Shown here is an 87-nucleotide RNA sequence from Pseudomonas protegens, a member of the family "gyrA RNA". Lineage of the source: Bacteria > Pseudomonadota > Gammaproteobacteria > Pseudomonas > Pseudomonas protegens. The sequence is in the family's curated seed alignment. It is annotated as a cis-regulatory element.

Nucleotides: 087
Stems, first nucleotide, its partner, number of pairs: 007036009018026001037072002039069009049060004
Number, partner (000 for none) and nucleotide at each position: 001000a002000c003000g004000u005000g006000a007036g008035u009034u010033g011032g012031g013030u014029c015028c016000g017000g018026g019000c020000c021000u022000g023000u024000a025000u026018u027000g028015g029014g030013g031012c032011u033010c034009a035008g036007c037072g038071a039069g040068u041067u042066u043065g044064g045063c046062a047061g048000a049060g050059c051058u052057c053000a054000g055000g056000a057052g058051g059050g060049u061047u062046u063045g064044c065043c066042g067041g068040a069039c070000g071038u072037c073000c074000u075000u076000a077000a078000g079000a080000g081000u082000g083000c084000a085000a086000a087000g